[Rfam]
RNA sequence: AAACAACAUUUGCCGAAUUCUCAAAUUGAGAAACGGGGGAACCAAUUUUGGGUGAAUUAACCUUGUUACAAGGGUUAUAGGGAACCUUCAACCGAACCCUCAGCUAACCUCGUAGGCACCGAAGGGAGUAUCA
Numbered sequence: 001a002a003a004c005a006a007c008a009u010u011u012g013c014c015g016a017a018u019u020c021u022c023a024a025a026u027u028g029a030g031a032a033a034c035g036g037g038g039g040a041a042c043c044a045a046u047u048u049u050g051g052g053u054g055a056a057u058u059a060a061c062c063u064u065g066u067u068a069c070a071a072g073g074g075u076u077a078u079a080g081g082g083a084a085c086c087u088u089c090a091a092c093c094g095a096a097c098c099c100u101c102a103g104c105u106a107a108c109c110u111c112g113u114a115g116g117c118a119c120c121g122a123a124g125g126g127a128g129u130a131u132c133a
Stems, first nucleotide, its partner, number of pairs: 011118004018032003033113006044048001050099003058077006080093002
Shown here is a 133-nucleotide RNA sequence from Cohnella luojiensis, a member of the family "c-di-AMP riboswitch aptamer (ydaO/yuaA leader)". The organism belongs to Cohnella, within Bacteria. The match comes from Rfam's covariance-model search (82 bits).